[Rfam]
RNA sequence: UAUGGAAAAAAAUACUGUCUUCAUAUAUUUUUGGUAAUAUGGUCCAAAAGUCUCUACCAGAACUCCGUAAAGGUUCUGACUAUGAUGAUUUAUUUAUUACUA
Numbered sequence: 001u002a003u004g005g006a007a008a009a010a011a012a013u014a015c016u017g018u019c020u021u022c023a024u025a026u027a028u029u030u031u032u033g034g035u036a037a038u039a040u041g042g043u044c045c046a047a048a049a050g051u052c053u054c055u056a057c058c059a060g061a062a063c064u065c066c067g068u069a070a071a072g073g074u075u076c077u078g079a080c081u082a083u084g085a086u087g088a089u090u091u092a093u094u095u096a097u098u099a100c101u102a
Stems, first nucleotide, its partner, number of pairs: 018088002021085005029049006058078007